[Rfam]
RNA: mir-216 microRNA precursor family
Organism: Mytilus edulis
RNA sequence: UGGUAGCAUAAUCUCAGCUGGUAAAUCUGAGUUGUCCUUUGAUCUCAAGUUACUAGCCGAGAUUAUGUUAACU
Number, nucleotide and partner (000 for none) at each position: 001u000002g000003g000004u070005a069006g068007c067008a000009u065010a064011a063012u062013c061014u060015c059016a000017g057018c000019u000020g000021g054022u000023a051024a050025a000026u049027c000028u047029g046030a045031g044032u000033u000034g000035u000036c000037c000038u000039u000040u000041g000042a000043u000044c031045u030046c029047a028048a000049g026050u024051u023052a000053c000054u021055a000056g000057c017058c000059g015060a014061g013062a012063u011064u010065a009066u000067g007068u006069u005070a004071a000072c000073u000